[Rfam]
RNA: U1 spliceosomal RNA
RNA sequence: AUACUUACCUGGCAGGGGAGACAUCAUGAUCAUGAAGGUGGUUUUCCCAGGGUGAGGCUUAUUCAUUGCACUCCGGAUGUGCUGACCCCUGCGAUUUCCCCAAAUGUGGGAAACUCAACUGCACAAUUUGUGGUAGUGGGGGAAAAAAAAAAACUAAUCAUGCUCAUA
Numbered sequence: 001a002u003a004c005u006u007a008c009c010u011g012g013c014a015g016g017g018g019a020g021a022c023a024u025c026a027u028g029a030u031c032a033u034g035a036a037g038g039u040g041g042u043u044u045u046c047c048c049a050g051g052g053u054g055a056g057g058c059u060u061a062u063u064c065a066u067u068g069c070a071c072u073c074c075g076g077a078u079g080u081g082c083u084g085a086c087c088c089c090u091g092c093g094a095u096u097u098c099c100c101c102a103a104a105u106g107u108g109g110g111a112a113a114c115u116c117a118a119c120u121g122c123a124c125a126a127u128u129u130g131u132g133g134u135a136g137u138g139g140g141g142g143a144a145a146a147a148a149a150a151a152a153a154c155u156a157a158u159c160a161u162g163c164u165c166a167u168a
Base pairs, nucleotide, nucleotide: 012122013121014120015119016048017047018046019045020044021043023042024041025040026039027038049090050089051088052087054086056083057082058081060079061078062077063076064075093116094115095113096112097111099109100108